[Rfam]
RNA sequence: ACAAUAUUUAGACCGUCGGUCUAUCGAGCAAUGUCGCCCGCUUGGUGGAAAGUCUUCUUUUCGUUAA
Numbered sequence: 001a002c003a004a005u006a007u008u009u010a011g012a013c014c015g016u017c018g019g020u021c022u023a024u025c026g027a028g029c030a031a032u033g034u035c036g037c038c039c040g041c042u043u044g045g046u047g048g049a050a051a052g053u054c055u056u057c058u059u060u061u062c063g064u065u066a067a
Stems, first nucleotide, its partner, number of pairs: 004064002010058003015053002020049010